[Rfam]
RNA sequence: CGACUCUGAUAGAGUCAACCUAGCCAACUGACGUUGUUUGUGGAAUAUUUUCACUUAAACAAUGAUGCCAACCGAACAAUUUACGGUUGGCUUUUUUUUU
Numbered sequence: 001c002g003a004c005u006c007u008g009a010u011a012g013a014g015u016c017a018a019c020c021u022a023g024c025c026a027a028c029u030g031a032c033g034u035u036g037u038u039u040g041u042g043g044a045a046u047a048u049u050u051u052c053a054c055u056u057a058a059a060c061a062a063u064g065a066u067g068c069c070a071a072c073c074g075a076a077c078a079a080u081u082u083a084c085g086g087u088u089g090g091c092u093u094u095u096u097u098u099u100u
Stems, first nucleotide, its partner, number of pairs: 002016005034065004040054006068090007
Shown here is a 100-nucleotide RNA sequence from Photobacterium halotolerans, a member of the family "Qrr RNA". It scores 78 bits against the family's covariance model. From the family's description: This family represents a set of small RNAs (the Qrr RNAs) that are thought to be involved in the regulation of quorum sensing in Vibrio species. It is believed that these RNAs, guided by a protein, Hfq, can mediate the destabilisation of the quorum-sensing master regulators LuxR/HapR mRNAs.